[Rfam]
Nucleotides: 270
Stems, first nucleotide, its partner, number of pairs: 006027003032044001080123002088118001089116002092110005132146001134145004154197003157193002204246008214232006255270006
Number, partner (000 for none) and nucleotide at each position: 001000u002000g003000g004000c005000g006027c007026c008025c009000a010000g011000c012000u013000u014000g015000g016000g017000g018000c019000u020000g021000g022000c023000c024000g025008g026007g027006g028000a029000a030000u031000u032044c033000g034000g035000a036000g037000g038000g039000a040000a041000g042000a043000g044032g045000c046000g047000u048000c049000u050000a051000a052000u053000c054000c055000a056000u057000c058000g059000g060000c061000u062000g063000a064000a065000c066000a067000a068000a069000g070000c071000g072000a073000a074000a075000g076000u077000c078000a079000g080123u081122c082000c083000a084000a085000g086000a087000a088118g089116g090115a091000u092110c093109g094108c095107g096106g097000g098000g099000g100000a101000g102000c103000c104000u105000g106096u107095c108094g109093u110092g111000c112000u113000g114000c115090u116089c117000a118088c119000a120000a121000a122081g123080g124000u125000g126000c127000a128000g129000a130000a131000c132146c133000g134145c135144c136143u137142a138000a139000u140000u141000a142137u143136g144135g145134g146132g147000c148000a149000a150000g151000a152000a153000u154197u155196a156195a157193g158192u159000g160000g161000g162000c163000a164000u165000g166000a167000a168000a169000u170000u171000u172000u173000u174000g175000u176000u177000a178000a179000g180000c181000a182000a183000u184000u185000a186000a187000a188000a189000g190000a191000a192158g193157c194000c195156u196155u197154a198000a199000a200000g201000a202000c203000u204246c205245g206244a207243g208242g209241a210240g211239u212000a213000a214232a215231g216230g217229u218228u219227a220000a221000g222000a223000g224000u225000g226000a227219u228218g229217a230216u231215c232214u233000u234000u235000u236000u237000a238000a239211g240210u241209u242208u243207u244206u245205u246204g247000a248000c249000c250000u251000u252000a253000u254000u255270a256269a257268g258267g259266a260265c261000a262000c263000c264000u265260g266259u267258c268257c269256u270255u
This 270-nucleotide sequence from Sciurus vulgaris belongs to the Rfam family "Mason-Pfizer monkey virus packaging signal".
The source organism's lineage runs through Eukaryota, Chordata, Rodentia, Sciuridae and Sciurus.
Gene Ontology term of the family: viral genome packaging.
About the family: This family represents a group of sequences that are related to the Mason-Pfizer monkey virus (MPMV) packaging signal.